[Rfam]
RNA sequence: ACUGCCCCUAGAAGCAUUGUGGGUGUGGCUGCUGUAUCACAUGUGCAUCAGUAGGUGGCAGAGAGGAGAGAGGCUAUGCCUGUGCUCAGUUCUCUGAUCUAUAAACAUCUGAAUGAUUAGCAGCCUAAUAUU
Numbered sequence: 001a002c003u004g005c006c007c008c009u010a011g012a013a014g015c016a017u018u019g020u021g022g023g024u025g026u027g028g029c030u031g032c033u034g035u036a037u038c039a040c041a042u043g044u045g046c047a048u049c050a051g052u053a054g055g056u057g058g059c060a061g062a063g064a065g066g067a068g069a070g071a072g073g074c075u076a077u078g079c080c081u082g083u084g085c086u087c088a089g090u091u092c093u094c095u096g097a098u099c100u101a102u103a104a105a106c107a108u109c110u111g112a113a114u115g116a117u118u119a120g121c122a123g124c125c126u127a128a129u130a131u132u
Stems, first nucleotide, its partner, number of pairs: 002061005007055004014048001019046003024041005068129001071126005077120001083115002086112004090107001093104001
This 132-nucleotide RNA from Mus spicilegus belongs to the Rfam family "Small nucleolar RNA SNORA17". snoRNA ACA 17 belongs to the H/ACA family of snoRNAs and is predicted to guide pseudouridylation of the 28S rRNA at positions U4659 and U4598. It shares the same host gene together with ACA43. NB This family has a high threshold value to exclude a large number of closely related sequences that do not appear to have conserved H and ACA boxes, and may be pseudogenes. The family's consensus secondary structure was predicted with RNAalifold. A reference for the family is Ofengand and Bakin (1997), "Mapping to nucleotide resolution of pseudouridine residues in large subunit ribosomal RNAs from representative eukaryotes, prokaryotes, archaebacteria, mitochondria and chloroplasts", J Mol Biol. NCBI's taxonomy places the organism under Eukaryota, Dipnotetrapodomorpha, Rodentia, Muroidea, Mus.